[Rfam]
RNA: Gut-1 RNA
RNA sequence: CAGUUAAAUUCGCCUAAGGCGAGUGAAAUUGCCUUCGGCAGUGAAAUUUAUCUAAAGAUAAGUGAAAUAUUAC
Numbered sequence: 001c002a003g004u005u006a007a008a009u010u011c012g013c014c015u016a017a018g019g020c021g022a023g024u025g026a027a028a029u030u031g032c033c034u035u036c037g038g039c040a041g042u043g044a045a046a047u048u049u050a051u052c053u054a055a056a057g058a059u060a061a062g063u064g065a066a067a068u069a070u071u072a073c
Stems, first nucleotide, its partner, number of pairs: 008024007028042005046063007